[Rfam]
RNA sequence: AUAGACUGAAAAUCCCCCCCACUGCAUCAGUCAGUGGGGGGAAGAUACCUGUGCCAACAGUAAUGUGGCGCAUCAAAGCUUAUUUCCAGUCCCUGUGACUGUGCAAUCAAACGCAUGUGCCCACACUC
Numbered sequence: 001a002u003a004g005a006c007u008g009a010a011a012a013u014c015c016c017c018c019c020c021a022c023u024g025c026a027u028c029a030g031u032c033a034g035u036g037g038g039g040g041g042a043a044g045a046u047a048c049c050u051g052u053g054c055c056a057a058c059a060g061u062a063a064u065g066u067g068g069c070g071c072a073u074c075a076a077a078g079c080u081u082a083u084u085u086c087c088a089g090u091c092c093c094u095g096u097g098a099c100u101g102u103g104c105a106a107u108c109a110a111a112c113g114c115a116u117g118u119g120c121c122c123a124c125a126c127u128c
Stems, first nucleotide, its partner, number of pairs: 005052002008049001010046001013043001015041002021035004067121001069119005080109001082107003088100003
Rfam assigns this 128-nucleotide sequence from Clupea harengus to the family "Small nucleolar RNA ACA64". A reference for the family is Schattner et al. (2006), "A computational screen for mammalian pseudouridylation guide H/ACA RNAs", RNA. The family has 30 seed sequences and 9,537 matches in Rfam 15.1. The family's consensus secondary structure was predicted with WAR. Taxonomically the source falls in Clupea (Eukaryota, Craniata, Clupeiformes, Clupeoidei). Its family is annotated with nucleolus and RNA processing in the Gene Ontology.